[Rfam]
RNA: Guanidine-II riboswitch aptamer (mini-ykkC)
RNA sequence: UAUCCGGGACGACUCGGAUCAACGCCAUCUCAUUGGGGACGACCCCA
Dot-bracket structure: .(((((((....)))))))..............(((((....)))))